[Rfam]
Nucleotides: 082
Stems, first nucleotide, its partner, number of pairs: 004079007012071003017064007025056005031050005
Number, partner (000 for none) and nucleotide at each position: 001000c002000c003000a004079g005078a006077a007076a008075g009074g010073a011000a012071g013070a014069a015000c016000g017064a018063u019062u020061c021060u022059c023058u024000u025056a026055u027054u028053g029052g030000c031050u032049g033048g034047u035046g036000u037000a038000u039000a040000u041000u042000g043000c044000c045000u046035u047034g048033u049032u050031a051000a052029c053028c054027a055026a056025u057000a058023a059022g060021a061020g062019g063018a064017u065000g066000c067000c068000a069014u070013u071012u072000a073010u074009c075008c076007u077006u078005u079004u080000c081000u082000g